[Rfam]
RNA sequence: CAAAAGGGAAGGCUUAAGGUGCCUUAAAGGGUCUUUAGGGCGCCUUUGGAGGCGCCUUAAGGGGUACCUUAAGGCGCCCUAAGUAGGCGGCGGGAAAUUUCCCGCCGCUGCUUGAGGGCGCCUCCUCCUUGAGGGAGGCGCCUUCAUGUGCCA
Dot-bracket structure: ........(((((.......)))))........((((((((((((....)))))))))(.((.((........)).)).))))...(((((((((....)))))))))(((.(((((((((((((.(.....)))))))))))))).)))...
Source information: A member of the RNA family "sbcD RNA" from Zingiber officinale, 153 nucleotides long.